The record is a 409-nucleotide sequence from Mucilaginibacter xinganensis, which matches "Bacterial RNase P class A" in Rfam. Rfam classes the family as a ribozyme. Rfam links the family to the GO terms tRNA processing, ribonuclease P activity and dimeric ribonuclease P complex.
RNA sequence: GCCGCAAAACGUUCUAUCGCUGUUCUGAUUUAUCAGGACGGAGGAAAGUCCGGGCAACAUAGAGCAUCCUGCUUCCUAACGGGAAGGCGCCGUCAGCCGGCGACAGCAAGUGCCACAGAAAAUAAACCGCCUGGUUCCGGCAUCUGCCAGAACCAGGUAAGGGUGAAAACGUGAGGUAAGAGCUCACGGCUUUUCCGGGCGACCGGGAUCGCGGUAAACCUCAGGAGUUGAAAAACCAAAUAGGUCCUGAAAGCGGAGCUGCUCGUUCCCGAAUCCCGAUUUAUCGGGGUCGUCAGGAUGGGUAGGUUGAUUGAACCUGCCAGCAAUGGCAGGGCCAGAUUAAUGAUAGAAACCAUAAUAACUUUUAGCUAUUAUGGCACAGAACCCGGCUUACAGGUUUGCUGCUGAU
Number, nucleotide and partner (000 for none) at each position: 001g405002c404003c000004g402005c401006a400007a399008a398009a000010c396011g394012u351013u350014c349015u348016a347017u346018c345019g000020c041021u040022g039023u038024u037025c036026u035027g034028a033029u000030u000031u000032a000033u028034c027035a026036g025037g024038a023039c022040g021041g020042a000043g000044g000045a000046a392047a391048g390049u000050c389051c388052g387053g386054g385055c230056a229057a228058c227059a000060u000061a000062g000063a000064g284065c000066a000067u226068c225069c224070u223071g222072c086073u085074u084075c083076c082077u000078a000079a000080c000081g000082g076083g075084a074085a073086g072087g104088c102089g101090c100091c099092g000093u000094c000095a000096g000097c000098c000099g091100g090101c089102g088103a000104c087105a221106g220107c000108a000109a000110g219111u218112g215113c214114c213115a000116c000117a000118g000119a000120a000121a000122a000123u000124a000125a000126a000127c162128c161129g158130c157131c156132u155133g154134g153135u152136u151137c150138c000139g000140g000141c000142a000143u000144c000145u000146g000147c000148c000149a000150g137151a136152a135153c134154c133155a132156g131157g130158u129159a000160a000161g128162g127163g000164u000165g000166a000167a000168a000169a000170c188171g187172u186173g185174a184175g183176g000177u000178a000179a000180g000181a000182g000183c175184u174185c173186a172187c171188g170189g000190c000191u000192u000193u208194u207195c206196c205197g204198g203199g000200c000201g000202a000203c198204c197205g196206g195207g194208a193209u000210c000211g000212c000213g114214g113215u112216a000217a000218a111219c110220c106221u105222c071223a070224g069225g068226a067227g058228u057229u056230g055231a000232a000233a000234a308235a307236c306237c305238a000239a000240a000241u000242a000243g000244g299245u298246c297247c296248u295249g294250a000251a000252a000253g000254c000255g000256g000257a000258g000259c000260u000261g000262c000263u000264c000265g000266u000267u000268c000269c000270c000271g000272a000273a000274u000275c000276c000277c292278g291279a290280u289281u288282u000283a000284u064285c000286g000287g000288g281289g280290u279291c278292g277293u000294c249295a248296g247297g246298a245299u244300g000301g000302g000303u000304a000305g237306g236307u235308u234309g000310a000311u000312u000313g000314a000315a000316c333317c332318u331319g330320c329321c328322a327323g000324c000325a000326a000327u322328g321329g320330c319331a318332g317333g316334g000335c000336c000337a000338g000339a000340u000341u000342a000343a000344u000345g018346a017347u016348a015349g014350a013351a012352a000353c000354c000355a000356u000357a000358a000359u000360a000361a000362c000363u000364u000365u000366u000367a000368g000369c000370u000371a000372u000373u000374a000375u000376g000377g000378c000379a000380c000381a000382g000383a000384a000385c054386c053387c052388g051389g050390c048391u047392u046393a000394c011395a000396g010397g000398u008399u007400u006401g005402c004403u000404g002405c001406u000407g000408a000409u000